Description
The record is a 98-nucleotide RNA, which matches "skipping-rope RNA" in Rfam. It is one of the family's seed sequences. By type it is a small RNA.

RNA sequence: ACUCUUUGAGGUGGAAGAUUUCGUGCGAUCCACACGCCGUUGGUACUGACAGGGGAAAUCCCGAGAGAUGCAGGAGAAGCGCACGCCUGCCAAAGAGU
Numbered sequence: 001a002c003u004c005u006u007u008g009a010g011g012u013g014g015a016a017g018a019u020u021u022c023g024u025g026c027g028a029u030c031c032a033c034a035c036g037c038c039g040u041u042g043g044u045a046c047u048g049a050c051a052g053g054g055g056a057a058a059u060c061c062c063g064a065g066a067g068a069u070g071c072a073g074g075a076g077a078a079g080c081g082c083a084c085g086c087c088u089g090c091c092a093a094a095g096a097g098u
Stems, first nucleotide, its partner, number of pairs: 001098008011033005023084005035065001037053002039050004070090005